Shown here is a 91-nucleotide RNA sequence from Rhodovulum sp. ES.010, a member of the family "Glycine riboswitch aptamer".
Gene Ontology term of the family: glycine biosynthetic process.
Lineage of the source: Bacteria > Pseudomonadati > Pseudomonadota > Rhodobacterales > Rhodovulum.

RNA sequence: CAUCCGCCCCCGGGAGAAUCCGGCGCAUGCGCCGGUGCCGAAGGAGCAACCGCCCCGGCAAACUCUCAGGCAUCAGGACCGUGGGCGGAAC
Numbered sequence: 001c002a003u004c005c006g007c008c009c010c011c012g013g014g015a016g017a018a019u020c021c022g023g024c025g026c027a028u029g030c031g032c033c034g035g036u037g038c039c040g041a042a043g044g045a046g047c048a049a050c051c052g053c054c055c056c057g058g059c060a061a062a063c064u065c066u067c068a069g070g071c072a073u074c075a076g077g078a079c080c081g082u083g084g085g086c087g088g089a090a091c
Stems, first nucleotide, its partner, number of pairs: 006086004011081003020035004037071003040067002044065003050058002